[Rfam]
RNA: U2 spliceosomal RNA
Organism: Cadophora sp. MPI-SDFR-AT-0126
RNA sequence: UCAGCUUCCUUUGCCAUAAGGCUUAGAUCAAGUGUAGUAUCUGUUCUGCCCAGCUUAAUCCGCUGGUGCCGGCUCCAACGGGGUCGUCCUCAUCAGGAUUCUAUUUUUGUCAGUGAUGGGGUGAUGGUGAUCGUGCUUGCACGGCUGCCUGAUCCUCGACUGUGUCCCUGGCAUUACACUGCAGCCGGGUGACGCGACUUGCU
Numbered sequence: 001u002c003a004g005c006u007u008c009c010u011u012u013g014c015c016a017u018a019a020g021g022c023u024u025a026g027a028u029c030a031a032g033u034g035u036a037g038u039a040u041c042u043g044u045u046c047u048g049c050c051c052a053g054c055u056u057a058a059u060c061c062g063c064u065g066g067u068g069c070c071g072g073c074u075c076c077a078a079c080g081g082g083g084u085c086g087u088c089c090u091c092a093u094c095a096g097g098a099u100u101c102u103a104u105u106u107u108u109g110u111c112a113g114u115g116a117u118g119g120g121g122u123g124a125u126g127g128u129g130a131u132c133g134u135g136c137u138u139g140c141a142c143g144g145c146u147g148c149c150u151g152a153u154c155c156u157c158g159a160c161u162g163u164g165u166c167c168c169u170g171g172c173a174u175u176a177c178a179c180u181g182c183a184g185c186c187g188g189g190u191g192a193c194g195c196g197a198c199u200u201g202c203u
Stems, first nucleotide, its partner, number of pairs: 009026002013022003050066004070086007120157002123154003127150001132143004161196005167189006